[Rfam]
RNA sequence: UUCGGAUAACUGGUGGAGAAGACUGAAAGAACUCAUAGAGUGUGUGUUGUCUUGCAGAAGCUUCGUCUUUCGUAAUUAACAAGACUGGAGUUUAAUAACAGCACCACUUUU
Numbered sequence: 001u002u003c004g005g006a007u008a009a010c011u012g013g014u015g016g017a018g019a020a021g022a023c024u025g026a027a028a029g030a031a032c033u034c035a036u037a038g039a040g041u042g043u044g045u046g047u048u049g050u051c052u053u054g055c056a057g058a059a060g061c062u063u064c065g066u067c068u069u070u071c072g073u074a075a076u077u078a079a080c081a082a083g084a085c086u087g088g089a090g091u092u093u094a095a096u097a098a099c100a101g102c103a104c105c106a107c108u109u110u111u
Base pairs, nucleotide, nucleotide: 044104045103046102047101048100049099059092060091061090062089063088064087066084067083068082069081
RNA: Small nucleolar RNA snoR97
Organism: Papaver somniferum